[Rfam]
Nucleotides: 086
Stems, first nucleotide, its partner, number of pairs: 004083004
Number, partner (000 for none) and nucleotide at each position: 001000a002000g003000c004083u005082g006081a007080a008000g009000a010000u011000g012000a013000u014000g015000a016000u017000c018000g019000g020000a021000a022000u023000g024000c025000u026000g027000g028000g029000u030000g031000a032000u033000g034000a035000u036000c037000a038000a039000u040000u041000u042000c043000a044000u045000a046000u047000g048000a049000u050000c051000u052000a053000a054000a055000u056000a057000u058000c059000u060000c061000c062000u063000u064000g065000c066000u067000g068000c069000g070000u071000u072000c073000u074000u075000u076000c077000u078000g079000a080007u081006u082005c083004a084000g085000g086000c